[Rfam]
The record is a 72-nucleotide RNA from Zymoseptoria tritici, which matches "tRNA" in Rfam.
It is annotated as a transfer RNA.

RNA sequence: GGCUAGUUAGUCUAGUAGUAUAAUUUCUAACUACAAAUUAGAAAGUUAUAGGUUUAAUUCCUGUAUUAGCCU
Numbered sequence: 001g002g003c004u005a006g007u008u009a010g011u012c013u014a015g016u017a018g019u020a021u022a023a024u025u026u027c028u029a030a031c032u033a034c035a036a037a038u039u040a041g042a043a044a045g046u047u048a049u050a051g052g053u054u055u056a057a058u059u060c061c062u063g064u065a066u067u068a069g070c071c072u
Stems, first nucleotide, its partner, number of pairs: 001071007010024002026042005048064005
Dot-bracket structure: (((((((..((...........)).(((((.......))))).....(((((.......)))))))))))).
The family's consensus secondary structure is taken from published work.